Rfam assigns this 80-nucleotide RNA from Sarcophilus harrisii to the family "Small nucleolar RNA SNORD121A". For this family Rfam cites "snoSeeker: an advanced computational package for screening of guide and orphan snoRNA genes in the human genome" (Yang et al., Nucleic Acids Res, 2006). The family's consensus secondary structure was predicted with WAR. By type it is a C/D-box small nucleolar RNA.

[Rfam]
RNA sequence: GUCCAAAGAACAAUGAUGUACUCUUUUCCAAGCACAUAUCUGACCAAUCCAUGUGGAAAACAUUUCUGAGUUUUUUGGAC
Number, nucleotide and partner (000 for none) at each position: 001g080002u079003c078004c077005a076006a075007a000008g073009a072010a071011c070012a000013a000014u000015g000016a000017u000018g000019u000020a000021c000022u000023c000024u000025u000026u000027u000028c000029c000030a000031a000032g000033c000034a000035c000036a000037u000038a000039u000040c000041u000042g000043a000044c000045c000046a000047a000048u000049c000050c000051a000052u000053g000054u000055g000056g000057a000058a000059a000060a000061c000062a000063u000064u000065u000066c000067u000068g000069a000070g011071u010072u009073u008074u000075u006076u005077g004078g003079a002080c001